[Rfam]
RNA sequence: UGUUGUUAACGAUGGUGUCAUUCCAGUGCUUGACGCUGGAAUCCAGUUUAUUAUGAAAUUUCAUCAAAAAUGUUGUAUAGUGUGCUCGUUUAUGAUUAAGUUUUCUAGAUUCCAGCGUCAAGCACUGGAAUGACACCACCAACUUCAUA
Numbered sequence: 001u002g003u004u005g006u007u008a009a010c011g012a013u014g015g016u017g018u019c020a021u022u023c024c025a026g027u028g029c030u031u032g033a034c035g036c037u038g039g040a041a042u043c044c045a046g047u048u049u050a051u052u053a054u055g056a057a058a059u060u061u062c063a064u065c066a067a068a069a070a071u072g073u074u075g076u077a078u079a080g081u082g083u084g085c086u087c088g089u090u091u092a093u094g095a096u097u098a099a100g101u102u103u104u105c106u107a108g109a110u111u112c113c114a115g116c117g118u119c120a121a122g123c124a125c126u127g128g129a130a131u132g133a134c135a136c137c138a139c140c141a142a143c144u145u146c147a148u149a
Stems, first nucleotide, its partner, number of pairs: 005148002008145002016135028045106002